RNA sequence: UCAUGCAAGAAGAAGCGCCCGCUUCUCACCUGAUCGACGCUGUGUUGCUGUUGACAGGUCAUUAGGAAACGGUUGAAUUUCCUUGUGAUAAUGGGAUUUAAAUGCGGGCGUUUACUUGCGCCCGCAUUUUUUUGUUUUC
Numbered sequence: 001u002c003a004u005g006c007a008a009g010a011a012g013a014a015g016c017g018c019c020c021g022c023u024u025c026u027c028a029c030c031u032g033a034u035c036g037a038c039g040c041u042g043u044g045u046u047g048c049u050g051u052u053g054a055c056a057g058g059u060c061a062u063u064a065g066g067a068a069a070c071g072g073u074u075g076a077a078u079u080u081c082c083u084u085g086u087g088a089u090a091a092u093g094g095g096a097u098u099u100a101a102a103u104g105c106g107g108g109c110g111u112u113u114a115c116u117u118g119c120g121c122c123c124g125c126a127u128u129u130u131u132u133u134g135u136u137u138u139c
Base pairs, nucleotide, nucleotide: 011026012025013024014023015022016021028059029058030057036052037051038050039048040047103126104125105124106123107122108121109120110119111118
Shown here is a 139-nucleotide sequence from Thermoactinomyces daqus, a member of the family "Ribosomal protein L20 leader". For this family Rfam cites "Diverse mechanisms for regulating ribosomal protein synthesis in Escherichia coli" (Zengel and Lindahl, Prog Nucleic Acid Res Mol Biol, 1994). The family's consensus secondary structure was predicted with CMfinder. From the family's description: This family is a putative r-protein leader autoregulatory structure found in B. subtilis and other low-GC Gram-positive bacteria. It is annotated as a cis-regulatory leader.